[Rfam]
mir-1388 microRNA precursor family: a 92-nucleotide sequence from Danio rerio.
Rfam's curators put it in the seed alignment.
The base pairs follow the family's consensus structure, which was predicted with RNAalifold.
Gene Ontology terms of the family: miRNA-mediated post-transcriptional gene silencing and RISC complex.
On this family, see Soares et al., BMC Genomics 2009: "Parallel DNA pyrosequencing unveils new zebrafish microRNAs".
The organism belongs to Danio, within Eukaryota.
RNA sequence: GGAUGAGCAGUGCUUUCCAGGACUGUCCAACCUGAGAAUGCUUGAGUUUUGGUCAAUCUCAGGUUCGUCAGCCCAUGAAAAACUGUCUCGCU
Numbered sequence: 001g002g003a004u005g006a007g008c009a010g011u012g013c014u015u016u017c018c019a020g021g022a023c024u025g026u027c028c029a030a031c032c033u034g035a036g037a038a039u040g041c042u043u044g045a046g047u048u049u050u051g052g053u054c055a056a057u058c059u060c061a062g063g064u065u066c067g068u069c070a071g072c073c074c075a076u077g078a079a080a081a082a083c084u085g086u087c088u089c090g091c092u
Base pairs, nucleotide, nucleotide: 005089006088007087008085009084010083011082014080015079016078017077020074021073023071024070025069027067029065030064031063032062033061034060035059036058037057039055040054